This 101-nucleotide sequence from Paenisporosarcina antarctica belongs to the Rfam family "Purine riboswitch aptamer". Taxonomically the source falls in Paenisporosarcina (Bacteria, Bacillati, Bacillota, Bacilli). The family's consensus secondary structure is taken from published work.
RNA sequence: AAUAUAGAAACAUCUAAUCCCCAUAUAUGCUAAAGAAUUGGCUUUAGCGUCUCUACCAGGUCACCGUAAAUGACCGGACUAUGCGGGAAAGCAACUUUUGG
Numbered sequence: 001a002a003u004a005u006a007g008a009a010a011c012a013u014c015u016a017a018u019c020c021c022c023a024u025a026u027a028u029g030c031u032a033a034a035g036a037a038u039u040g041g042c043u044u045u046a047g048c049g050u051c052u053c054u055a056c057c058a059g060g061u062c063a064c065c066g067u068a069a070a071u072g073a074c075c076g077g078a079c080u081a082u083g084c085g086g087g088a089a090a091g092c093a094a095c096u097u098u099u100g101g
Stems, first nucleotide, its partner, number of pairs: 018087003022083004029048007057077001059075005